Description:
ASpks TB sRNA: a 75-nucleotide RNA sequence from Streptomyces albiflaviniger. The family's consensus secondary structure is taken from published work.
RNA sequence: CUUGAUGGCGCCCAGCCACAGCGGGCGGCCCUCCGGCCGCUCCUGGCCGUAGGUGGCGAGCAGCGCCUGGGCCUC
Numbered sequence: 001c002u003u004g005a006u007g008g009c010g011c012c013c014a015g016c017c018a019c020a021g022c023g024g025g026c027g028g029c030c031c032u033c034c035g036g037c038c039g040c041u042c043c044u045g046g047c048c049g050u051a052g053g054u055g056g057c058g059a060g061c062a063g064c065g066c067c068u069g070g071g072c073c074u075c
Stems, first nucleotide, its partner, number of pairs: 016024002031071003038065002043060002047056003

Taxonomically the source falls in Streptomyces (Bacteria, Actinomycetota, Actinomycetes, Kitasatosporales).